This 72-nucleotide RNA sequence from Polyplosphaeria fusca belongs to the Rfam family "bZIP non canonical Hac1/Xbp1 intron". By type it is a small RNA. About the family: bZIP intron RNA is a non-canonical intron that was first reported in HAC1 gene in yeast and XBP1 gene in Metazoa. It scores 43 bits against the family's covariance model. Pairs were carried over by alignment from the consensus structure, which was predicted with RNAfold.
RNA sequence: CGACCGAUUUCGACCAGACACGAUAUCCUGCUGCGAUAUUGUGCGACCUGCAGUGUCAGUCGACUUCGGUUG
Numbered sequence: 001c002g003a004c005c006g007a008u009u010u011c012g013a014c015c016a017g018a019c020a021c022g023a024u025a026u027c028c029u030g031c032u033g034c035g036a037u038a039u040u041g042u043g044c045g046a047c048c049u050g051c052a053g054u055g056u057c058a059g060u061c062g063a064c065u066u067c068g069g070u071u072g
Base pairs, nucleotide, nucleotide: 001072002071003070004069005068006067007066010063011062012061013060014059022040023039024038025037026036027035045057046056047055